The record is a 108-nucleotide RNA sequence from Lutibacter agarilyticus, which matches "6S-Flavo RNA" in Rfam.
The organism belongs to Lutibacter, within Bacteria.
It is annotated as a small RNA.
[Rfam]
RNA sequence: ACUCAACACUAUAUCUUUAUAAAGGAUGAGUCUUAAUUGUAAAAGCAAGCCGUCUUUGAACGGAUCCUUGAUCAAUUAGUUAAUCCUAAACUUGUUUAUAAGGAGUUU
Dot-bracket structure: ......................(((((......(((((....(((....((((......))))...)))....)))))....))))).....................
Numbered sequence: 001a002c003u004c005a006a007c008a009c010u011a012u013a014u015c016u017u018u019a020u021a022a023a024g025g026a027u028g029a030g031u032c033u034u035a036a037u038u039g040u041a042a043a044a045g046c047a048a049g050c051c052g053u054c055u056u057u058g059a060a061c062g063g064a065u066c067c068u069u070g071a072u073c074a075a076u077u078a079g080u081u082a083a084u085c086c087u088a089a090a091c092u093u094g095u096u097u098a099u100a101a102g103g104a105g106u107u108u
Stems, first nucleotide, its partner, number of pairs: 023087005034078005043069003050063004